[Rfam]
The record is a 65-nucleotide sequence from Arundinibacter roseus, which matches "DUF805 RNA" in Rfam.

RNA sequence: UCCCAAUGGAGUCCAGAAACCAUGCAAACGGGGCGAAACUGAAAAGCCAAAUGAGUAAGAAAAUU
Dot-bracket structure: .....((((..........))))........(((....[[.....))).........]]......
Numbered sequence: 001u002c003c004c005a006a007u008g009g010a011g012u013c014c015a016g017a018a019a020c021c022a023u024g025c026a027a028a029c030g031g032g033g034c035g036a037a038a039c040u041g042a043a044a045a046g047c048c049a050a051a052u053g054a055g056u057a058a059g060a061a062a063a064u065u
Stems, first nucleotide, its partner, number of pairs: 006023004032048003039059002
The family's consensus secondary structure is taken from published work. The family is grouped with related families in Rfam's "DUF805 clan". By type it is a cis-regulatory element. The source organism's lineage runs through Bacteria, Bacteroidota, Cytophagia, Spirosomataceae and Arundinibacter.